The record is an 88-nucleotide RNA sequence from Cellulomonas sp. Leaf395, which matches "ZMP/ZTP riboswitch aptamer (pfl RNA motif)" in Rfam.
RNA sequence: GGCACCGGUCGUGACUGGCGCAGGUGGGUGCAACCACCGGGGAGCGGCCGCAGUGCCCCGCCACGCACCGCCCGCCUGGGUGCAUGGG
Number, nucleotide and partner (000 for none) at each position: 001g000002g000003c053004a000005c000006c050007g049008g048009u047010c046011g045012u044013g000014a000015c041016u040017g076018g075019c074020g073021c000022a000023g000024g037025u036026g035027g034028g000029u000030g000031c000032a000033a000034c027035c026036a025037c024038c000039g000040g016041g015042g000043a000044g012045c011046g010047g009048c008049c007050g006051c000052a000053g003054u000055g000056c000057c000058c000059c000060g000061c000062c000063a000064c000065g083066c082067a081068c080069c079070g000071c000072c000073c020074g019075c018076c017077u000078g000079g069080g068081u067082g066083c065084a000085u000086g000087g000088g000
The match comes from Rfam's covariance-model search (48 bits).